Bacterial large subunit ribosomal RNA: a 379-nucleotide part of an RNA from Vibrio maritimus. Gene Ontology terms of the family: ribosome and structural constituent of ribosome. The base pairs follow the family's consensus structure, which is taken from published work. Taxonomically the source falls in Vibrio (Bacteria, Pseudomonadati, Gammaproteobacteria, Vibrionaceae).
RNA sequence: GAUAAAGGGGGUGAAAAACCUCCUCGCCGGAAGACCAAGGGUUCCUGUCCAACGUUAAUCGGGGCAGGGUGAGUCGACCCCUAAGGCGAGGCCGAAAGGCGUAGUCGAUGGGAAACGGGUUAAUAUUCCCGUACUUCUUACAAUUGCGAUGGGGGGACGGAGAAGGCUAGGUGGGCCUGGCGACGGUUGUCCAGGUUCAAGUGCGUAGGCUUGAGAGUUAGGUAAAUCCGGCUCUCUUUAAGGCUGAGACACGAUGUCGAGCUACUACGGUAGUGAAGUCAUUGAUGCCAUGCUUCCAGGAAAAGCCUCUAAGCUUCAGAUUGUAAGGAAUCGUACCCCAAACCGACACAGGUGGUCGGGUAGAGAAUACCAAGGCGCU
Numbered sequence: 001g002a003u004a005a006a007g008g009g010g011g012u013g014a015a016a017a018a019c020c021u022c023c024u025c026g027c028c029g030g031a032a033g034a035c036c037a038a039g040g041g042u043u044c045c046u047g048u049c050c051a052a053c054g055u056u057a058a059u060c061g062g063g064g065c066a067g068g069g070u071g072a073g074u075c076g077a078c079c080c081c082u083a084a085g086g087c088g089a090g091g092c093c094g095a096a097a098g099g100c101g102u103a104g105u106c107g108a109u110g111g112g113a114a115a116c117g118g119g120u121u122a123a124u125a126u127u128c129c130c131g132u133a134c135u136u137c138u139u140a141c142a143a144u145u146g147c148g149a150u151g152g153g154g155g156g157a158c159g160g161a162g163a164a165g166g167c168u169a170g171g172u173g174g175g176c177c178u179g180g181c182g183a184c185g186g187u188u189g190u191c192c193a194g195g196u197u198c199a200a201g202u203g204c205g206u207a208g209g210c211u212u213g214a215g216a217g218u219u220a221g222g223u224a225a226a227u228c229c230g231g232c233u234c235u236c237u238u239u240a241a242g243g244c245u246g247a248g249a250c251a252c253g254a255u256g257u258c259g260a261g262c263u264a265c266u267a268c269g270g271u272a273g274u275g276a277a278g279u280c281a282u283u284g285a286u287g288c289c290a291u292g293c294u295u296c297c298a299g300g301a302a303a304a305g306c307c308u309c310u311a312a313g314c315u316u317c318a319g320a321u322u323g324u325a326a327g328g329a330a331u332c333g334u335a336c337c338c339c340a341a342a343c344c345g346a347c348a349c350a351g352g353u354g355g356u357c358g359g360g361u362a363g364a365g366a367a368u369a370c371c372a373a374g375g376c377g378c379u
Stems, first nucleotide, its partner, number of pairs: 006024006025377004033357004039337002044068006053061002075333003080111002085106003089102001091100003115132005135329011146314002151309004159296004165289003170283005175196006198256001201252003208245003213236007221229002261274005343352002359371004